[Rfam]
RNA sequence: GACCCAGUGAAGAUCUAACACCAAUGGAUAGGAAGUGCCGUUUGACUCUAAAUAGCAGCGGCCUCAACUGUAGAUGUCCAUACUUCUACAAUAGCCUUUGUGGUUUUUUCUGGGAUGGAGCUCACAUGUGCAGCUGUUUGAUUCACCUGUGGGGGUGAUUCAAAAAGGUUCAUUGAGGGAU
Dot-bracket structure: (.(((..............................................................(((((.((((((((.(....(.((.((((.....)))))).)...).))))).....))).)))))...........................................))).)
RNA: Small nucleolar RNA Z112
Organism: Miscanthus lutarioriparius